The record is a 134-nucleotide RNA from Myotis brandtii, which matches "U11 spliceosomal RNA" in Rfam.
RNA sequence: AAAAAUGGGUUCUGUUCUGAGUGUCACAUGUAGAGCAGCUUGAUUGCUCUACAUGCAAAGUUGACAUCAAGAGAUUUUGGAAGCAUAAUUUUUUGAUACUUGGGCAGCUGGUGAUAGUUGGUGCUGGCGCCCGC
Dot-bracket structure: .......(.(((((.(......).))((((((((((((.....))))))))))))(((((((..........)))))))))).).................((((.(((((..((.....)).)))))))))..